[Rfam]
RNA sequence: UGCCUUUAUGUGUUGCCCUUUCACUGUUUCCAUCAUGAAUGGGGUGUCAACUAAGGCAUACAGAGACUCUUGCGGUUACCUUUAGGAGGAGUCACCUGUGAUUCCUCUGACAGGAGUAGCUGCAAGGACAUGU
Numbered sequence: 001u002g003c004c005u006u007u008a009u010g011u012g013u014u015g016c017c018c019u020u021u022c023a024c025u026g027u028u029u030c031c032a033u034c035a036u037g038a039a040u041g042g043g044g045u046g047u048c049a050a051c052u053a054a055g056g057c058a059u060a061c062a063g064a065g066a067c068u069c070u071u072g073c074g075g076u077u078a079c080c081u082u083u084a085g086g087a088g089g090a091g092u093c094a095c096c097u098g099u100g101a102u103u104c105c106u107c108u109g110a111c112a113g114g115a116g117u118a119g120c121u122g123c124a125a126g127g128a129c130a131u132g133u
Stems, first nucleotide, its partner, number of pairs: 002057005011049002014046004018041001020039004069126004075120005088111001090108002094103001